The family of this 75-nucleotide RNA sequence from Eptatretus burgeri is "Mammalian CPEB3 ribozyme". Rfam links the family to the GO term RNA nuclease activity. About the family: The mammalian CPEB3 ribozyme is a self cleaving RNA located in the second intron of the CPEB3 gene which belongs to a family of genes regulating messenger RNA polyadenylation. This ribozyme is highly conserved and found only in mammals. The CPEB3 ribozyme is structurally and biochemically related to the human hepatitis delta virus (HDV) ribozyme and the HDV ribozyme is proposed to have arisen from the human transcriptome. It scores 57 bits against the family's covariance model.
RNA sequence: AGGGCAGAGGUGGGAGCCAUAGCAGGAGCAUUCUCAUCGUGGUCCCUGUCAGAUGUUUCAUCUGUGAAUCCUGCU
Number, nucleotide and partner (000 for none) at each position: 001a000002g000003g000004g000005c000006a000007g000008a000009g000010g000011u000012g000013g046014g045015a000016g043017c042018c041019a000020u000021a075022g074023c073024a072025g071026g070027a069028g040029c039030a000031u000032u000033c000034u000035c000036a000037u000038c000039g029040u028041g018042g017043u016044c000045c014046c013047u000048g000049u000050c064051a063052g062053a061054u060055g059056u000057u000058u000059c055060a054061u053062c052063u051064g050065u000066g000067a000068a000069u027070c026071c025072u024073g023074c022075u021